[Rfam]
A member of the RNA family "Small nucleolar RNA SNORA73 family" from Nannospalax galili, 203 nucleotides long. Rfam 15.1 lists 2,326 matches to the family in 660 species. A reference for the family is Enright et al. (1996), "5'ETS rRNA processing facilitated by four small RNAs: U14, E3, U17, and U3", RNA. From the family's description: U17 (SNORA73A and SNORA73B) also known as E1 belongs to the H/ACA class of small nucleolar RNAs (snoRNAs). Vertebrate U17 is intron-encoded and ranges in length from 200-230 nucleotides, longer than most snoRNAs. It is one of the most abundant snoRNAs in human cells and is essential for the cleavage of pre-rRNA within the 5' external transcribed spacer (ETS). This cleavage leads to the formation of 18S rRNA. Regions of the U17 RNA are complementary to rRNA and act as guides for RNA/RNA interactions, although these regions do not seem to be well conserved between organisms.
RNA sequence: CCAGUAUGGCUACCCCAGGAGGCUGCUCUCCCCAGGCUCUACACUAGUGGCAGAGGGGAGCAUAGGUCUCUACCUCAUGAUAUACCAUCCCUUUCUACGAUGUUAGAGGGGAAACUGGACCUGGAGUCUCUGUCUGUAUAUACCUGUGACUUCUCAGUGUCCUGUGGACAAUGACAGAGAAGACAACCCAGGCAGUUCUAUGU
Dot-bracket structure: (.((((((..((.((..((((....)))).....))...))..)..((((.....(((((.((((............)..))).)..))))...)))).))))).)...........................((((.(..........((((((...((((...)))).......)))))).......).))))........